[Rfam]
RNA sequence: GAUAAAUGCGGUGUCUCCCUCCUCCUCCCUGGAGGCGCCGCGACAGAAACGCUGCCCCUCCUCCUCCCUGGGCAGCCGAUUUCGGAACGGCGGCGCCCCUCCUCCUCCCUGGGCGUCGCCGUUUU
Numbered sequence: 001g002a003u004a005a006a007u008g009c010g011g012u013g014u015c016u017c018c019c020u021c022c023u024c025c026u027c028c029c030u031g032g033a034g035g036c037g038c039c040g041c042g043a044c045a046g047a048a049a050c051g052c053u054g055c056c057c058c059u060c061c062u063c064c065u066c067c068c069u070g071g072g073c074a075g076c077c078g079a080u081u082u083c084g085g086a087a088c089g090g091c092g093g094c095g096c097c098c099c100u101c102c103u104c105c106u107c108c109c110u111g112g113g114c115g116u117c118g119c120c121g122u123u124u125u
Stems, first nucleotide, its partner, number of pairs: 007042003011038007047081002050078001051076006088121011
RNA: Alphaproteobacterial ar14
Organism: Gemmobacter aquaticus